RNA: U5 spliceosomal RNA
Organism: Schistosoma mansoni
RNA sequence: CAACUCUAGUGUCUCUUAAUUUGCGGAUAAAUCUUUCGCCUUUUACCGAAGAUUUCCGUGGGGAGGCACAAUACAAUGAGUCUUACCUCAUUUUUUCAACUCCGUCUUCGCACGUAGU
Numbered sequence: 001c002a003a004c005u006c007u008a009g010u011g012u013c014u015c016u017u018a019a020u021u022u023g024c025g026g027a028u029a030a031a032u033c034u035u036u037c038g039c040c041u042u043u044u045a046c047c048g049a050a051g052a053u054u055u056c057c058g059u060g061g062g063g064a065g066g067c068a069c070a071a072u073a074c075a076a077u078g079a080g081u082c083u084u085a086c087c088u089c090a091u092u093u094u095u096u097c098a099a100c101u102c103c104g105u106c107u108u109c110g111c112a113c114g115u116a117g118u
Stems, first nucleotide, its partner, number of pairs: 003081004009069009019059001029055008098118001100117002103114003